[Rfam]
RNA sequence: AGCAGGGCAAUGACUAAGAGGAGUAGGGCUGCGGCUGUGGCAUAGAGAGGAAACGGUUGGUGGAAGUUUCCCCAUGGCAGGUUUGAAGGUCGCUUAGGAGCUUCUGUGCUGAAUGAAGUAGGUGCAGACGUCUGGCCGCGUUAAGGCUUAGAGCUGACUUGUCAACUUGACAUGUCAAAUUGACGGGUCAGAAAACAUUGGUGGUACCACGAAAGUAUGCGCUUUCGUCCUUUGG
Numbered sequence: 001a002g003c004a005g006g007g008c009a010a011u012g013a014c015u016a017a018g019a020g021g022a023g024u025a026g027g028g029c030u031g032c033g034g035c036u037g038u039g040g041c042a043u044a045g046a047g048a049g050g051a052a053a054c055g056g057u058u059g060g061u062g063g064a065a066g067u068u069u070c071c072c073c074a075u076g077g078c079a080g081g082u083u084u085g086a087a088g089g090u091c092g093c094u095u096a097g098g099a100g101c102u103u104c105u106g107u108g109c110u111g112a113a114u115g116a117a118g119u120a121g122g123u124g125c126a127g128a129c130g131u132c133u134g135g136c137c138g139c140g141u142u143a144a145g146g147c148u149u150a151g152a153g154c155u156g157a158c159u160u161g162u163c164a165a166c167u168u169g170a171c172a173u174g175u176c177a178a179a180u181u182g183a184c185g186g187g188u189c190a191g192a193a194a195a196c197a198u199u200g201g202u203g204g205u206a207c208c209a210c211g212a213a214a215g216u217a218u219g220c221g222c223u224u225u226c227g228u229c230c231u232u233u234g235g
Stems, first nucleotide, its partner, number of pairs: 007101002015096004026084005038074003049071006104127007129140003154191012200230002209228007